[Rfam]
RNA sequence: UCCUCGCUCAACAAAUCGCUGUCAGAGUUUACAUACAGGUUGACUUUCGGUCUUCCAUUUACAAAUGGCUCUGGGAGAAAGUCCCCGGACAGCUUGCUCCUUUGUGGAACGAGUAGGCGUAGAUGCGCCGCCAUAAAAGCAAUCUUCGCGGCUUAGUCCUCUCCGCCUCCAAACCCUGCUGAGCUCAUCUCUUUCUGCUUGAUGCCCUCGGUAUAGCACUUUGCUAGCUCUUUGGAAGACAACGGAAGACCAUAGCGACGAUGAUAUGAGUCCGAGCUUUUGUUCAGCUUCCUUUGCUGCUGGAAAGUGUGGUACUGGUGGCUGAGGACUGGAUGAGUGCUGUUGGUGCUGGAUCCAGGUGUGUGAGGACGAUUUUUCGUCGAGUUGGAUAGUUAUGCGAUUGCCUUGUGUUCUUGCUUUAGGGCUCGAAUGCUGGGUUACUCGAUGGGGCUUAUUCUUGAGGCGAGG
Numbered sequence: 001u002c003c004u005c006g007c008u009c010a011a012c013a014a015a016u017c018g019c020u021g022u023c024a025g026a027g028u029u030u031a032c033a034u035a036c037a038g039g040u041u042g043a044c045u046u047u048c049g050g051u052c053u054u055c056c057a058u059u060u061a062c063a064a065a066u067g068g069c070u071c072u073g074g075g076a077g078a079a080a081g082u083c084c085c086c087g088g089a090c091a092g093c094u095u096g097c098u099c100c101u102u103u104g105u106g107g108a109a110c111g112a113g114u115a116g117g118c119g120u121a122g123a124u125g126c127g128c129c130g131c132c133a134u135a136a137a138a139g140c141a142a143u144c145u146u147c148g149c150g151g152c153u154u155a156g157u158c159c160u161c162u163c164c165g166c167c168u169c170c171a172a173a174c175c176c177u178g179c180u181g182a183g184c185u186c187a188u189c190u191c192u193u194u195c196u197g198c199u200u201g202a203u204g205c206c207c208u209c210g211g212u213a214u215a216g217c218a219c220u221u222u223g224c225u226a227g228c229u230c231u232u233u234g235g236a237a238g239a240c241a242a243c244g245g246a247a248g249a250c251c252a253u254a255g256c257g258a259c260g261a262u263g264a265u266a267u268g269a270g271u272c273c274g275a276g277c278u279u280u281u282g283u284u285c286a287g288c289u290u291c292c293u294u295u296g297c298u299g300c301u302g303g304a305a306a307g308u309g310u311g312g313u314a315c316u317g318g319u320g321g322c323u324g325a326g327g328a329c330u331g332g333a334u335g336a337g338u339g340c341u342g343u344u345g346g347u348g349c350u351g352g353a354u355c356c357a358g359g360u361g362u363g364u365g366a367g368g369a370c371g372a373u374u375u376u377u378c379g380u381c382g383a384g385u386u387g388g389a390u391a392g393u394u395a396u397g398c399g400a401u402u403g404c405c406u407u408g409u410g411u412u413c414u415u416g417c418u419u420u421a422g423g424g425c426u427c428g429a430a431u432g433c434u435g436g437g438u439u440a441c442u443c444g445a446u447g448g449g450g451c452u453u454a455u456u457c458u459u460g461a462g463g464c465g466a467g468g
Base pairs, nucleotide, nucleotide: 002468003467004466005465006464007463008461009460010459011458014402015401016400017399018398019397022075023073024072025071026070027069028068038056039055042052043051044050079453080452081451083450084449085448086447103115104114105113283304284303285302286301287300288299306374307373308372312370313369315367316366322363330357331356332355333354340348404437405436406435408433409432410431411430412429413428
A member of the RNA family "RNase MRP" from Gomphillus americanus, 468 nucleotides long. Rfam classes the family as a ribozyme. A search with the family's covariance model found it, with a score of 97 bits. Lineage of the source: Eukaryota > Dikarya > Ostropales > Gomphilloideae > Gomphillus.